[Rfam]
Overview
The record is a 69-nucleotide sequence from Trypanosoma rangeli, which matches "Trypanosomatid snoRNA TB11Cs5H2" in Rfam. On this family, see Myslyuk et al., BMC Bioinformatics 2008: "Psiscan: a computational approach to identify H/ACA-like and AGA-like non-coding RNA in trypanosomatid genomes". A search with the family's covariance model found it, with a score of 72 bits. It is annotated as an H/ACA-box small nucleolar RNA. Rfam 15.1 lists 34 matches to the family in 20 species. Rfam links the family to the GO terms RNA processing and nucleolus.

RNA sequence: AAGCAGCAUCAGUACAGCGGCGGUGCUGCAACAUUCAUCAUGGUGCCGUCUGCUGGCGAUGUAGCGAGA
Numbered sequence: 001a002a003g004c005a006g007c008a009u010c011a012g013u014a015c016a017g018c019g020g021c022g023g024u025g026c027u028g029c030a031a032c033a034u035u036c037a038u039c040a041u042g043g044u045g046c047c048g049u050c051u052g053c054u055g056g057c058g059a060u061g062u063a064g065c066g067a068g069a
Stems, first nucleotide, its partner, number of pairs: 003065002006062004015055005022047006